Background:
The record is a 62-nucleotide RNA from Aquamicrobium sp. LC103, which matches "ybhL leader" in Rfam. The base pairs follow the family's consensus structure. Rfam's curators write: This family is a putative regulatory RNA structure that is found upstream of an uncharacterized membrane protein in alpha-proteobacteria. NCBI's taxonomy places the organism under Bacteria, Pseudomonadati, Pseudomonadota, Phyllobacteriaceae, Aquamicrobium.
RNA sequence: UAGGCAUGCUGGAGUUCCGCCAGCGGCGCCUGGGCGCAUGCCCGACACCCGACGGAACAGGA
Number, nucleotide and partner (000 for none) at each position: 001u000002a000003g000004g000005c000006a000007u000008g000009c000010u000011g000012g000013a000014g058015u057016u056017c055018c054019g053020c000021c000022a000023g000024c000025g049026g048027c000028g000029c000030c000031u044032g043033g042034g041035c040036g000037c000038a000039u000040g035041c034042c033043c032044g031045a000046c000047a000048c026049c025050c000051g000052a000053c019054g018055g017056a016057a015058c014059a000060g000061g000062a000